Guanidine-I riboswitch aptamer: a 98-nucleotide RNA sequence from Heyndrickxia oleronia. The match comes from Rfam's covariance-model search (83 bits). About the family: This family represents a conserved RNA structure found upstream of the ykkC and yxkD genes in Bacillus subtilis and related genes in other bacteria. The function of this family is unclear although it has been suggested that it may function to switch on efflux pumps and detoxification systems in response to harmful environmental molecules. The family has 100 seed sequences and 1,509 matches in Rfam 15.1.

[Rfam]
RNA sequence: AAAUAGGUUUUCUAGGGUUCCGCGUAUUAAACGGACUGGUCCGAGAGAAAACCCGCAAGAAGUUUUUUGCGUCACGGAAGGAUAAAAGCCUGGGAGAA
Numbered sequence: 001a002a003a004u005a006g007g008u009u010u011u012c013u014a015g016g017g018u019u020c021c022g023c024g025u026a027u028u029a030a031a032c033g034g035a036c037u038g039g040u041c042c043g044a045g046a047g048a049a050a051a052c053c054c055g056c057a058a059g060a061a062g063u064u065u066u067u068u069g070c071g072u073c074a075c076g077g078a079a080g081g082a083u084a085a086a087a088g089c090c091u092g093g094g095a096g097a098a
Stems, first nucleotide, its partner, number of pairs: 007052006015042002020039002022036001023033003054071007073093001075096001079091003